[Rfam]
RNA: L31-Firmicutes ribosomal protein leader
Organism: Aleadryas rufinucha
RNA sequence: CUCUGAAAUUAAACAAGUUUCAGGGCAAAGGAG
Numbered sequence: 001c002u003c004u005g006a007a008a009u010u011a012a013a014c015a016a017g018u019u020u021c022a023g024g025g026c027a028a029a030g031g032a033g
Base pairs, nucleotide, nucleotide: 001025002024003023004022005021008018009017010016